[Rfam]
RNA sequence: GGAAGGUCGUCGUGUCCGGUGAUGCGGCAGGACUUCAAAUCCUGUUAGGGCUGCCAGCAGUCCUGGGUGGGUUCGACUCCCAUGACCUUCC
Numbered sequence: 001g002g003a004a005g006g007u008c009g010u011c012g013u014g015u016c017c018g019g020u021g022a023u024g025c026g027g028c029a030g031g032a033c034u035u036c037a038a039a040u041c042c043u044g045u046u047a048g049g050g051c052u053g054c055c056a057g058c059a060g061u062c063c064u065g066g067g068u069g070g071g072u073u074c075g076a077c078u079c080c081c082a083u084g085a086c087c088u089u090c091c
Stems, first nucleotide, its partner, number of pairs: 001091009011026006027045006047064005068082004
Dot-bracket structure: (((((((((.((((((....))))))((((((.......)))))).(((((........)))))...((((.......)))))))))))))
RNA: Selenocysteine transfer RNA
Organism: [Mannheimia] succiniciproducens